[Rfam]
RNA sequence: CCGAGCCGUCGCGACUGGCGCCUGCGGGUGGAACCGACCACCGGGGAGCGAUGGCAGCAGGACCGCCGCGCGCCUGGGCACCGACG
Dot-bracket structure: ....((((((((..(([[[[[......((((......))))..))..)))))))).........(((..]]]]]..))).......

Rfam assigns this 86-nucleotide RNA from Patulibacter medicamentivorans to the family "ZMP/ZTP riboswitch aptamer (pfl RNA motif)". Its family is annotated with regulation of purine nucleotide biosynthetic process and one-carbon metabolic process in the Gene Ontology. The source organism's lineage runs through Bacteria, Bacillati, Solirubrobacterales, Patulibacteraceae and Patulibacter. A search with the family's covariance model found it, with a score of 50 bits.